[Rfam]
Shown here is a 60-nucleotide sequence, a member of the family "queA RNA". Pairs were carried over by alignment from the consensus structure, which is taken from published work. Rfam's curators put it in the seed alignment. By type it is a small RNA.

RNA sequence: UUCAUGCCGUAACAUGAAGUGAGCUGCCCCGUAAGGCGGCGGCAACCUGAAUGUGGCUAU
Number, nucleotide and partner (000 for none) at each position: 001u018002u017003c016004a015005u014006g013007c000008c000009g000010u000011a000012a000013c006014a005015u004016g003017a002018a001019g000020u000021g000022a000023g043024c042025u041026g040027c039028c000029c036030c035031g000032u000033a000034a000035g030036g029037c000038g000039g027040c026041g025042g024043c023044a000045a000046c000047c000048u000049g000050a000051a000052u000053g000054u000055g000056g000057c000058u000059a000060u000